[Rfam]
RNA sequence: AAACAUGGACAGGGGUACUAUUUUUAAAUAGUUGAGAAAUACUCUUAAUAGCUGAUCUAGUUAAUACUAGCGUAGCGAGUCUUCAACUCUCCUAC
Number, nucleotide and partner (000 for none) at each position: 001a000002a000003a000004c000005a000006u000007g082008g081009a080010c079011a045012g044013g043014g042015g000016u039017a032018c031019u030020a029021u028022u000023u000024u000025u000026a000027a000028a021029u020030a019031g018032u017033u000034g000035a000036g000037a000038a000039a016040u000041a000042c014043u013044c012045u011046u000047a000048a000049u000050a000051g076052c075053u074054g073055a000056u000057c070058u069059a068060g067061u000062u000063a000064a000065u000066a000067c060068u059069a058070g057071c000072g000073u054074a053075g052076c051077g000078a000079g010080u009081c008082u007083u000084c000085a000086a000087c000088u000089c000090u000091c000092c000093u000094a000095c000
RNA: TPP riboswitch aptamer (THI element)